[Rfam]
Small nucleolar RNA U3: a 214-nucleotide RNA from Pelusios castaneus. Rfam 15.1 lists 19,072 matches to the family in 1,215 species. Small nucleolar RNAs (snoRNAs) are involved in the processing and modification of rRNA in the nucleolus. There are two main classes of snoRNAs: the box C/D class, and the box H/ACA class. U3 snoRNA is a member of the box C/D class. Indeed, the box C/D element is a subset of the six short sequence elements found in all U3 snoRNAs, namely boxes A, A', B, C, C', and D. The U3 snoRNA secondary structure is characterised by a small 5' domain (with boxes A and A'), and a larger 3' domain (with boxes B, C, C', and D), the two domains being linked by a single-stranded hinge. Boxes B and C form the B/C motif, which appears to be exclusive to U3 snoRNAs, and boxes C' and D form the C'/D motif. The latter is functionally similar to the C/D motifs found in other snoRNAs. The 5' domain and the hinge region act as a pre-rRNA-binding domain. The 3' domain has conserved protein-binding sites. Both the box B/C and box C'/D motifs are sufficient for nuclear retention of U3 snoRNA. The box C'/D motif is also necessary for nucleolar localisation, stability and hyper-methylation of U3 snoRNA. Both box B/C and C'/D motifs are involved in specific protein interactions and are necessary for the rRNA processing functions of U3 snoRNA. Its Rfam clan is "U3 clan". Rfam classes the family as a C/D-box small nucleolar RNA. Its family is annotated with RNA processing and nucleolus in the Gene Ontology.

Nucleotides: 214
Base pairs, nucleotide, nucleotide: 002040003039005037006035009032010031011030015027016026017025018024049063050062054059075214076213077212078211079210094202095201096200098198099197100196101195102194103193104192108166109165110164118154119153120152121151125147126146127145128143129142130141131140132139169188170187171185172184173183174182
Number, partner (000 for none) and nucleotide at each position: 001000a002040a003039g004000a005037c006035u007000g008000u009032g010031c011030u012000u013000u014000c015027a016026g017025g018024g019000a020000u021000c022000a023000u024018u025017u026016c027015u028000a029000u030011a031010g032009u033000u034000g035006a036000u037005g038000a039003u040002u041000a042000g043000a044000g045000a046000a047000g048000g049063g050062u051000c052000u053000g054059u055000g056000u057000g058000a059054a060000a061000a062050g063049c064000u065000g066000g067000u068000c069000u070000u071000g072000c073000u074000a075214a076213c077212c078211a079210u080000g081000a082000u083000g084000a085000a086000g087000a088000a089000u090000u091000a092000u093000a094202g095201u096200g097000u098198u099197u100196c101195c102194u103193u104192c105000u106000g107000a108166g109165c110164a111000u112000g113000a114000c115000a116000g117000u118154a119153g120152c121151a122000g123000a124000c125147a126146g127145u128143g129142c130141u131140g132139g133000u134000c135000u136000g137000u138000g139132c140131c141130a142129g143128u144000u145127a146126u147125u148000u149000u150000c151121u152120g153119c154118u155000g156000u157000g158000g159000a160000g161000g162000a163000u164110u165109g166108u167000c168000c169188u170187g171185u172184u173183u174182u175000u176000a177000a178000c179000u180000g181000g182174a183173a184172a185171a186000g187170c188169a189000g190000g191000u192104g193103a194102a195101g196100g197099a198098a199000c200096c201095a202094c203000a204000g205000u206000c207000u208000g209000a210079g211078u212077g213076g214075u